RNA sequence: GGCCUGUGAUGCGAAAAAUUGUCCGUACCAUCUGAGACGACCGUCUCUGAUCGACAUUUCAUCAUCUCUAGCUUUCUGAGGCCU
Numbered sequence: 001g002g003c004c005u006g007u008g009a010u011g012c013g014a015a016a017a018a019u020u021g022u023c024c025g026u027a028c029c030a031u032c033u034g035a036g037a038c039g040a041c042c043g044u045c046u047c048u049g050a051u052c053g054a055c056a057u058u059u060c061a062u063c064a065u066c067u068c069u070a071g072c073u074u075u076c077u078g079a080g081g082c083c084u
Base pairs, nucleotide, nucleotide: 001083002082003081004080
This 84-nucleotide RNA from Rhodamnia argentea belongs to the Rfam family "small nucleolar RNA snoR117". Its family is annotated with RNA processing and nucleolus in the Gene Ontology. Pairs were carried over by alignment from the consensus structure, which was predicted with RNAalifold. The organism belongs to Rhodamnia, within Eukaryota. It scores 71 bits against the family's covariance model.